Rfam assigns this 150-nucleotide RNA from Mesorhizobium hungaricum to the family "rpsB sRNA". Lineage of the source: Bacteria > Pseudomonadota > Hyphomicrobiales > Phyllobacteriaceae > Mesorhizobium. It is annotated as a small RNA. Pairs were carried over by alignment from the consensus structure, which is taken from published work.
RNA sequence: CACACACGGGUUUUGGUGUCUGUCCGGGAGAAAUCCGGCUGAAACCUCCGGUGGCGGUCAAGGCGAACCCCGAAAAGCGACAUGCUUUCGAUCCGGUUUUCCCAAAACCGUCAAAUGCCCGUGGAGGUCAACCGGAAAGGAACUAAAAGA
Numbered sequence: 001c002a003c004a005c006a007c008g009g010g011u012u013u014u015g016g017u018g019u020c021u022g023u024c025c026g027g028g029a030g031a032a033a034u035c036c037g038g039c040u041g042a043a044a045c046c047u048c049c050g051g052u053g054g055c056g057g058u059c060a061a062g063g064c065g066a067a068c069c070c071c072g073a074a075a076a077g078c079g080a081c082a083u084g085c086u087u088u089c090g091a092u093c094c095g096g097u098u099u100u101c102c103c104a105a106a107a108c109c110g111u112c113a114a115a116u117g118c119c120c121g122u123g124g125a126g127g128u129c130a131a132c133c134g135g136a137a138a139g140g141a142a143c144u145a146a147a148a149g150a
Stems, first nucleotide, its partner, number of pairs: 001126001003124001005123006015046002025037002028035001053112006